[Rfam]
RNA sequence: GGCGGGAUUAACCGUUCAUUAAGGAUAAGCGUAUUAAAUGGUUGAUAUCCAGUUUUCCUGGAUACUUACCGAGUGGUUUCGCCACUCUGUUUGACGCCUCCCUGUUAAACUCCUGAGAGCCGCUUUCGCGGCUCUUUUUUU
Numbered sequence: 001g002g003c004g005g006g007a008u009u010a011a012c013c014g015u016u017c018a019u020u021a022a023g024g025a026u027a028a029g030c031g032u033a034u035u036a037a038a039u040g041g042u043u044g045a046u047a048u049c050c051a052g053u054u055u056u057c058c059u060g061g062a063u064a065c066u067u068a069c070c071g072a073g074u075g076g077u078u079u080c081g082c083c084a085c086u087c088u089g090u091u092u093g094a095c096g097c098c099u100c101c102c103u104g105u106u107a108a109a110c111u112c113c114u115g116a117g118a119g120c121c122g123c124u125u126u127c128g129c130g131g132c133u134c135u136u137u138u139u140u141u
Base pairs, nucleotide, nucleotide: 001043002042003041006013015037020036021035022034024032047063048062049061050060071087072086073085074084075083076082093106094105095104096103115136116135117134118133119132120131121130122129123128
Rfam assigns this 141-nucleotide RNA from Paramesorhizobium leguminum to the family "Alphaproteobacterial sRNA BjrC1505".
The organism belongs to Paramesorhizobium, within Bacteria.
On this family, see Madhugiri et al., RNA Biol 2012: "Small RNAs of the Bradyrhizobium/Rhodopseudomonas lineage and their analysis".